A member of the RNA family "Glycine riboswitch aptamer" from Clostridium sp. D5, 95 nucleotides long.
RNA sequence: CACUAAAACUCAGGAGAGUCUCUUGAUUUAAGAGCGCCGAAGGUGUAAGCAGCAAUAGCUGUAAAUCUCUCAGGCAAAAGGAUGGAGGAGUAAUU
Numbered sequence: 001c002a003c004u005a006a007a008a009c010u011c012a013g014g015a016g017a018g019u020c021u022c023u024u025g026a027u028u029u030a031a032g033a034g035c036g037c038c039g040a041a042g043g044u045g046u047a048a049g050c051a052g053c054a055a056u057a058g059c060u061g062u063a064a065a066u067c068u069c070u071c072a073g074g075c076a077a078a079a080g081g082a083u084g085g086a087g088g089a090g091u092a093a094u095u
Base pairs, nucleotide, nucleotide: 009087010086011085013083020034021033022032023031036075037074038073039071040070043069045067049062050061051060052059
Dot-bracket structure: ........(((.(......((((.......)))).(((((..(.(...((((......))))....).))).))).......).)))........
This family represents the bacterial glycine riboswitch. Glycine riboswitches usually consist of two metabolite-binding aptamers domains with similar structures in tandem. The aptamers cooperatively bind glycine to regulate the expression of downstream genes.